[Rfam]
Rfam assigns this 103-nucleotide sequence from a Dermatophilaceae bacterium to the family "mraW RNA". Lineage of the source: Bacteria > Bacillati > Actinomycetes > Micrococcales > Dermatophilaceae. By type it is a cis-regulatory element. The match comes from Rfam's covariance-model search (52 bits).

Nucleotides: 103
Stems, first nucleotide, its partner, number of pairs: 010090002013087001015085002018082002021079005027073005032067002035064001037062008
Number, partner (000 for none) and nucleotide at each position: 001000c002000a003000g004000c005000g006000c007000a008000c009000c010090u011089g012000a013087g014000u015085g016084c017000c018082g019081g020000c021079c022078u023077c024076c025075a026000g027073c028072c029071g030070c031069u032067c033066c034000g035064c036000u037062c038061c039060c040059g041058g042057g043056a044055c045000g046000a047000c048000u049000u050000c051000c052000c053000c054000c055044g056043u057042c058041c059040c060039g061038g062037g063000c064035g065000a066033g067032g068000c069031a070030g071029c072028g073027g074000a075025u076024g077023g078022g079021g080000a081019c082018c083000a084016g085015u086000c087013c088000g089011c090010a091000g092000g093000u094000g095000a096000g097000g098000c099000u100000c101000a102000c103000c